[Rfam]
RNA sequence: UAUUCGAGUAGAGGCGCAUUUAUCAAGAGUCGAUUUCACGAGUUUGAAAAGAAACGGUGACUGAAAUCAAAAGGGAUGAAUGCCGAAAUGAGCGGCCACUUUUAUGGCUGUGAGUUGGGGCUUAACCUAAUAAGUUAAGAACUGUCGCGACAAUUGCCGCGGAGCGCUAUAAGAUGU
Numbered sequence: 001u002a003u004u005c006g007a008g009u010a011g012a013g014g015c016g017c018a019u020u021u022a023u024c025a026a027g028a029g030u031c032g033a034u035u036u037c038a039c040g041a042g043u044u045u046g047a048a049a050a051g052a053a054a055c056g057g058u059g060a061c062u063g064a065a066a067u068c069a070a071a072a073g074g075g076a077u078g079a080a081u082g083c084c085g086a087a088a089u090g091a092g093c094g095g096c097c098a099c100u101u102u103u104a105u106g107g108c109u110g111u112g113a114g115u116u117g118g119g120g121c122u123u124a125a126c127c128u129a130a131u132a133a134g135u136u137a138a139g140a141a142c143u144g145u146c147g148c149g150a151c152a153a154u155u156g157c158c159g160c161g162g163a164g165c166g167c168u169a170u171a172a173g174a175u176g177u
Stems, first nucleotide, its partner, number of pairs: 008170004016083009032068007087116003092111007117143002121139006145162005151156001

Source information
A member of the RNA family "Lysine riboswitch aptamer" from Lentilactobacillus parafarraginis, 177 nucleotides long. The source organism's lineage runs through Bacteria, Lactobacillales, Lactobacillaceae, Lentilactobacillus and Lentilactobacillus parafarraginis. The family's consensus secondary structure is taken from published work.